Vault RNA: a 99-nucleotide RNA from Labrus bergylta. The match comes from Rfam's covariance-model search (70 bits). By type it is a non-coding RNA gene.
RNA sequence: GCACUGGUUUAGCUCAGUGGUUACUUCGAGCACAAAUUCUAUCUGAAUUCCUCUCCGUCCCUCACCGGGAUCGAACCACGGGCGCUGUCUAGUGUUUUU
Numbered sequence: 001g002c003a004c005u006g007g008u009u010u011a012g013c014u015c016a017g018u019g020g021u022u023a024c025u026u027c028g029a030g031c032a033c034a035a036a037u038u039c040u041a042u043c044u045g046a047a048u049u050c051c052u053c054u055c056c057g058u059c060c061c062u063c064a065c066c067g068g069g070a071u072c073g074a075a076c077c078a079c080g081g082g083c084g085c086u087g088u089c090u091a092g093u094g095u096u097u098u099u
Stems, first nucleotide, its partner, number of pairs: 002094006012083004017079004025075005